RNA sequence: AAUUUCUCACGCUAACUGUGAUAACUCUGUAGGCAUUACUUCGAACAAGCGAACGAAACGAAUUCCAAUGAAAGCCCUUCUACGAGUCAUUAGCCUAGUCGUCAUUAACGUCGUCGUGAUUAUUAUCACGCCGUGCGGGGCUACGCUCGGAGGAAGAAAGGCUUAAAUAUCAAGCCUGAUUUCGAAAGAACCCCCGCACCGAAAGGUCCGGGGGUUUUUUUUUGGCAAGGCAAUAAUGUGAGAGGAACAGAAGAUGUACAGUAGAAUAAAAUGCUGUUGUUCCCAUAAACG
Numbered sequence: 001a002a003u004u005u006c007u008c009a010c011g012c013u014a015a016c017u018g019u020g021a022u023a024a025c026u027c028u029g030u031a032g033g034c035a036u037u038a039c040u041u042c043g044a045a046c047a048a049g050c051g052a053a054c055g056a057a058a059c060g061a062a063u064u065c066c067a068a069u070g071a072a073a074g075c076c077c078u079u080c081u082a083c084g085a086g087u088c089a090u091u092a093g094c095c096u097a098g099u100c101g102u103c104a105u106u107a108a109c110g111u112c113g114u115c116g117u118g119a120u121u122a123u124u125a126u127c128a129c130g131c132c133g134u135g136c137g138g139g140g141c142u143a144c145g146c147u148c149g150g151a152g153g154a155a156g157a158a159a160g161g162c163u164u165a166a167a168u169a170u171c172a173a174g175c176c177u178g179a180u181u182u183c184g185a186a187a188g189a190a191c192c193c194c195c196g197c198a199c200c201g202a203a204a205g206g207u208c209c210g211g212g213g214g215u216u217u218u219u220u221u222u223u224g225g226c227a228a229g230g231c232a233a234u235a236a237u238g239u240g241a242g243a244g245g246a247a248c249a250g251a252a253g254a255u256g257u258a259c260a261g262u263a264g265a266a267u268a269a270a271a272u273g274c275u276g277u278u279g280u281u282c283c284c285a286u287a288a289a290c291g
Stems, first nucleotide, its partner, number of pairs: 004024002007021004011016001029066001031064002036058002040056001041052002076245003080240001085234001088230001090228002093226003097223002100110003112133002115130002118127003134151001136149004153183003160177002163174002185220012198207003246278005252272001254267002
The family of this 291-nucleotide RNA sequence from Erwinia sp. Leaf53 is "Soft rot Enterobacteriaceae Rev 39 5'UTR".
The source organism's lineage runs through Bacteria, Pseudomonadota, Gammaproteobacteria, Enterobacterales and Erwinia.
It is annotated as a cis-regulatory element.
From bacteria cultured under starvation conditions.
A search with the family's covariance model found it, with a score of 140 bits.
The literature on the family includes a 2016 paper in BMC Genomics by Kwenda et al., "Discovery and profiling of small RNAs responsive to stress conditions in the plant pathogen Pectobacterium atrosepticum".
Rfam links the family to the GO term cellular response to starvation.